This 72-nucleotide RNA from Cyprinodon variegatus belongs to the Rfam family "Small nucleolar RNA SNORD99".
A search with the family's covariance model found it, with a score of 66 bits.
The literature on the family includes a 2002 paper in Mol Cell Biol by Galardi et al., "Purified box C/D snoRNPs are able to reproduce site-specific 2'-O-methylation of target RNA in vitro".
The base pairs follow the family's consensus structure, which was predicted with RNAalifold.
Clan: SNORD58 clan.
By type it is a C/D-box small nucleolar RNA.

RNA sequence: UCUGAUCCAUGAUGACCUCUAGGAAAGGCAGACUGCUGGAUGAAGCCUGCGGAUAUGGGGCUGAGAUCAGAC
Numbered sequence: 001u002c003u004g005a006u007c008c009a010u011g012a013u014g015a016c017c018u019c020u021a022g023g024a025a026a027g028g029c030a031g032a033c034u035g036c037u038g039g040a041u042g043a044a045g046c047c048u049g050c051g052g053a054u055a056u057g058g059g060g061c062u063g064a065g066a067u068c069a070g071a072c
Base pairs, nucleotide, nucleotide: 001071002070003069004068005067